[Rfam]
RNA sequence: UAGCGGAGUUUGCCUAAUUCACGAUUUAUCUUGUGAAGCGGAGGAACCAGAUUUGGGGCGAAUCCAAGGUUUGUACUGGUGACACUGGUUGCCCAACAGAACCGAGGAAGGGCAUCUCUCAGCCCUAGCCCGUCAGCUAACUUCGUCGGCUGUGAGGGAAACUGA
Numbered sequence: 001u002a003g004c005g006g007a008g009u010u011u012g013c014c015u016a017a018u019u020c021a022c023g024a025u026u027u028a029u030c031u032u033g034u035g036a037a038g039c040g041g042a043g044g045a046a047c048c049a050g051a052u053u054u055g056g057g058g059c060g061a062a063u064c065c066a067a068g069g070u071u072u073g074u075a076c077u078g079g080u081g082a083c084a085c086u087g088g089u090u091g092c093c094c095a096a097c098a099g100a101a102c103c104g105a106g107g108a109a110g111g112g113c114a115u116c117u118c119u120c121a122g123c124c125c126u127a128g129c130c131c132g133u134c135a136g137c138u139a140a141c142u143u144c145g146u147c148g149g150c151u152g153u154g155a156g157g158g159a160a161a162c163u164g165a
Stems, first nucleotide, its partner, number of pairs: 012150003018037007038146006048055002056131003064107002110125004